[Rfam]
RNA sequence: UAUCUGGUUGAUCCUGCCAGUAGUCAUAUGCUUGUCUCAAAGAUUAAGCCAUGCAUGUCUAAGUAUAAGCGAUUAUACAGUGAAACUGCGAAUGGCUCAUUAAAUCAGUUAUCGUUUAUUUGAUAGUACCUUGCUAAUUGGCAUACGCCUGGCAAUUCUAGAGCUAAUACAUGCGUCCAAGCCCGACCUCCGGAAGGGCUGUAUUUAUUAGAUAAAAAAUCAACAUCCGUGAUGAUUCAUAAUAACUUUUCGAAUCGCAGGGCCUCGUGCCGGCGAUGGUUCAUUCAAAUUUCUGCCCUAUCAACUUUCGAUGGUAGGAUAGAGGCCUACCAUGGUUUCAACGGGUAACGGGGAAUUAGGGUUCGGUUCCGGAGAGGGAGCCUGAGAAACGGCUACCACAUCCAAGGAAGGCAGCAGGCGCGCAAAUUACCCAAUCCCGACACGGGGAGGUAGUGACAAUAAAUAACGAUGCAGGGCCCUUUCGGGUCUUGUAAUUGGAAUGAGUACAAUGUAAAUACCUUAACGAGGAACAAUUGGAGGGCAAGUCUGGUGCCAGCAGCCGCGGUAAUUCCAGCUCCAAGAGCGUAUAUUAAAGUUGUU
Number, nucleotide and partner (000 for none) at each position: 001u000002a000003u000004c020005u019006g018007g017008u016009u000010g000011a000012u000013c000014c000015u000016g008017c007018c006019a005020g004021u000022a591023g590024u589025c000026a588027u587028a586029u585030g584031c583032u582033u000034g000035u461036c000037u459038c000039a000040a000041a454042g421043a000044u000045u000046a000047a000048g419049c418050c417051a000052u416053g415054c414055a000056u000057g089058u088059c000060u000061a000062a087063g086064u085065a000066u000067a000068a000069g081070c080071g000072a000073u000074u000075a000076u000077a000078c000079a000080g070081u069082g000083a000084a000085a064086c063087u062088g058089c057090g000091a000092a000093u000094g000095g000096c374097u373098c372099a000100u000101u000102a000103a000104a000105u000106c295107a294108g293109u000110u000111a290112u289113c000114g000115u288116u287117u000118a000119u000120u000121u283122g282123a281124u000125a000126g000127u000128a000129c000130c000131u000132u000133g000134c000135u000136a000137a000138u000139u171140g170141g000142c000143a000144u000145a000146c000147g000148c000149c161150u160151g159152g158153c000154a000155a000156u000157u000158c152159u151160a150161g149162a000163g000164c000165u000166a000167a000168u000169a000170c140171a139172u000173g000174c000175g000176u000177c000178c000179a000180a200181g199182c198183c197184c196185g000186a000187c193188c192189u000190c000191c000192g188193g187194a000195a000196g184197g183198g182199c181200u180201g000202u000203a000204u000205u245206u244207a243208u242209u241210a240211g000212a000213u000214a000215a000216a000217a000218a000219a233220u232221c231222a230223a000224c000225a000226u000227c000228c000229g000230u222231g221232a220233u219234g000235a000236u000237u000238c000239a000240u210241a209242a208243u207244a206245a205246c000247u000248u000249u000250u000251c000252g000253a000254a000255u276256c275257g274258c273259a000260g000261g271262g270263c269264c000265u000266c000267g000268u000269g263270c262271c261272g000273g258274c257275g256276a255277u000278g000279g000280u000281u123282c122283a121284u000285u000286c000287a116288a115289a112290u111291u000292u000293c108294u107295g106296c000297c345298c344299u343300a000301u000302c000303a000304a336305c335306u334307u000308u000309c000310g000311a333312u332313g331314g330315u329316a328317g327318g326319a000320u000321a000322g000323a000324g000325g000326c318327c317328u316329a315330c314331c313332a312333u311334g306335g305336u304337u000338u000339c000340a000341a000342c000343g299344g298345g297346u000347a000348a000349c371350g370351g369352g368353g364354a363355a362356u361357u000358a000359g000360g000361g356362u355363u354364c353365g000366g000367u000368u352369c351370c350371g349372g098373a097374g096375a000376g397377g396378g000379a394380g393381c392382c000383u000384g000385a000386g000387a000388a000389a000390c000391g000392g381393c380394u379395a000396c377397c376398a000399c410400a000401u408402c407403c000404a000405a000406g000407g402408a401409a000410g399411g000412c000413a000414g054415c053416a052417g050418g049419c048420g000421c042422g000423c000424a000425a000426a000427u452428u000429a451430c450431c449432c000433a000434a000435u447436c446437c445438c444439g443440a000441c000442a000443c439444g438445g437446g436447g435448a000449g431450g430451u429452a427453g000454u041455g000456a000457c000458a000459a037460u000461a035462a000463a000464u000465a000466a000467c497468g496469a495470u493471g492472c491473a490474g489475g488476g487477c486478c485479c484480u000481u000482u000483c000484g479485g478486g477487u476488c475489u474490u473491g472492u471493a470494a000495u469496u468497g467498g000499a000500a000501u000502g000503a000504g524505u523506a521507c000508a520509a000510u000511g000512u000513a000514a000515a000516u000517a000518c000519c000520u508521u506522a000523a505524c504525g000526a000527g000528g000529a000530a000531c000532a000533a000534u580535u579536g578537g577538a576539g575540g000541g000542c000543a000544a000545g000546u000547c574548u573549g572550g571551u000552g000553c000554c000555a000556g563557c562558a000559g000560c000561c000562g557563c556564g000565g000566u000567a000568a000569u000570u000571c550572c549573a548574g547575c539576u538577c537578c536579a535580a534581g000582a032583g031584c030585g029586u028587a027588u026589a024590u023591u022592a000593a000594a000595g000596u000597u000598g000599u000600u000

The family of this 600-nucleotide part of an RNA from Sungouiella intermedia is "Eukaryotic small subunit ribosomal RNA". Lineage of the source: Eukaryota > Opisthokonta > Dikarya > Metschnikowiaceae > Sungouiella. Rfam 15.1 lists 75,755 matches to the family in 2,556 species.